[Rfam]
RNA sequence: UACACGCUCCCUUAGAUCCACUUCUGGGGCAUGUCACAUUUCACUUCCUGGACUGUUUGGUCUUGUCCUUAGAGUCCAUUGAAAGGGAAAUAUCUCAUUGAGAUGGGAUGCCCAGCAACUUUGGUUGUACUGUCGGAAGUGCUUGAGUCAUUGGCGUGUCAGAGCAUUAUACCUGUGUGUUGGGCCAAUUGCCCCACUAGACGUGCCCAGUUGCAGCUGGACGCAUUUUGCUAGUGGGGCUGGCGCGGGGCACGGACAUU
Dot-bracket structure: .(((((((..(((((...((((((((((((((....(((((((.......................................................)))))))..)))))).(((((....))))).....)))))))).))))).....))))))).............(((((..(.(.((.......((((((((...((....(((.......)))......))))))))))....)).).)..))))).....

Shown here is a 260-nucleotide sequence from Eptatretus burgeri, a member of the family "Small nucleolar RNA SNORA53". From the family's description: The snoRNA ACA53 belongs to the H/ACA family of pseudouridylation guide snoRNAs. Its family is annotated with nucleolus and RNA processing in the Gene Ontology. It is annotated as an H/ACA-box small nucleolar RNA. The organism belongs to Eptatretus, within Eukaryota.